[Rfam]
RNA: Mammalian CPEB3 ribozyme
Organism: Crocodylus porosus
RNA sequence: AGUUGCAAGUUUGCAGCUACAGCAGAAGCAGACAUGGUGUGGCUGUGUCAAAUUCCAACAAAUCUGUGAAUUCUGCU
Numbered sequence: 001a002g003u004u005g006c007a008a009g010u011u012u013g014c015a016g017c018u019a020c021a022g023c024a025g026a027a028g029c030a031g032a033c034a035u036g037g038u039g040u041g042g043c044u045g046u047g048u049c050a051a052a053u054u055c056c057a058a059c060a061a062a063u064c065u066g067u068g069a070a071u072u073c074u075g076c077u
Stems, first nucleotide, its partner, number of pairs: 014045005021077007028040003049066002052063003
Dot-bracket structure: .............[[[[[..((((((((((.......)))]]]]]...((.(((......))).))....)))))))